[Rfam]
The record is an 84-nucleotide RNA from Capsella rubella, which matches "Small nucleolar RNA snoR110" in Rfam. Rfam 15.1 lists 42 matches to the family in 15 species. A reference for the family is Marker et al. (2002), "Experimental RNomics: identification of 140 candidates for small non-messenger RNAs in the plant Arabidopsis thaliana", Curr Biol. Gene Ontology terms of the family: nucleolus and RNA processing. Taxonomically the source falls in Capsella (Eukaryota, Viridiplantae, Streptophytina, Euphyllophyta).

RNA sequence: GCUAAAUUUAGUGCCGCUUUGGUCUUUACAAGUUUUCUCAUUUUGUAUGUAAGAGUAACCUUAUUUCCUUGGCGGCAGAAAUCU
Numbered sequence: 001g002c003u004a005a006a007u008u009u010a011g012u013g014c015c016g017c018u019u020u021g022g023u024c025u026u027u028a029c030a031a032g033u034u035u036u037c038u039c040a041u042u043u044u045g046u047a048u049g050u051a052a053g054a055g056u057a058a059c060c061u062u063a064u065u066u067c068c069u070u071g072g073c074g075g076c077a078g079a080a081a082u083c084u
Base pairs, nucleotide, nucleotide: 012077013076014075015074016073017072018071021068022067031061032060036057038055041052